[Rfam]
A member of the RNA family "tRNA" from Pseudozyma flocculosa, 107 nucleotides long. The family's consensus secondary structure is taken from published work. Rfam links the family to the GO term triplet codon-amino acid adaptor activity. Rfam classes the family as a transfer RNA.
RNA sequence: GGCAAGAUGGCCGAGUGGUCUAAGGCGUAGCAUUAAGGAAGAUACCUCGCAUUGAGCGAGGGGCAAUCUGCUAUCUUCGGGCGUGGGUUCGAAUCCCACUCUUGUCA
Dot-bracket structure: (((((((..(((...........))).(((((....................................))))).........(((((.......)))))))))))).
Numbered sequence: 001g002g003c004a005a006g007a008u009g010g011c012c013g014a015g016u017g018g019u020c021u022a023a024g025g026c027g028u029a030g031c032a033u034u035a036a037g038g039a040a041g042a043u044a045c046c047u048c049g050c051a052u053u054g055a056g057c058g059a060g061g062g063g064c065a066a067u068c069u070g071c072u073a074u075c076u077u078c079g080g081g082c083g084u085g086g087g088u089u090c091g092a093a094u095c096c097c098a099c100u101c102u103u104g105u106c107a
Stems, first nucleotide, its partner, number of pairs: 001106007010026003028073005083099005